[Rfam]
RNA: Archaeal RNase P
RNA sequence: GACAGAGGGAGCCCGACUCCCGUGCCGUUGGCAUGAGGAAAGUCCCCCCACCGGCCGGACGGGCGACCGGGCACACGCUCGGAGUCGGAGACGGCUGGCUCUGGAACAGCAACGACACCCCCCACCUCGACCCGUGAUUCGUGCGAACCGACCCGUAAGGGAAGGGAGCUAACCCGAUGAGGUUCGACGGGUGGGAACGGAUGGAACGGCGAAUCCUCGCCGGUGCAAGUCCGCGGCCAUUAGGUAGUCCGGCCACGGCCGCAGACGCUGAGCCGAAUGUCGGGACGAACCGAAGGGGGCUUACUCCCCUCAGUC
Dot-bracket structure: (((.(((((((((((((...(((((.....)))))....[[[.[[[[[((((.[.[.[...((((((((((......)))))(((((....)))))((...(.(.............((.(((((((...........((...................................))...........)))))))...)).........).)..)))))))))))...(((.(((((............].].]...))))).)))............))))))..........]]]]]]]].)).))))).)))